[Rfam]
RNA: Group II catalytic intron D1-D4-1
RNA sequence: UAACCCUGUCCAAGAGGAGAGGCUGAACGUACAGAAGUCAGCAGACGCCAUAGUACGCAACGGUGGCCACAGUUGCGGAAGGGC
Numbered sequence: 001u002a003a004c005c006c007u008g009u010c011c012a013a014g015a016g017g018a019g020a021g022g023c024u025g026a027a028c029g030u031a032c033a034g035a036a037g038u039c040a041g042c043a044g045a046c047g048c049c050a051u052a053g054u055a056c057g058c059a060a061c062g063g064u065g066g067c068c069a070c071a072g073u074u075g076c077g078g079a080a081g082g083g084c
Stems, first nucleotide, its partner, number of pairs: 001025002005022003009018003037046003047084003056077006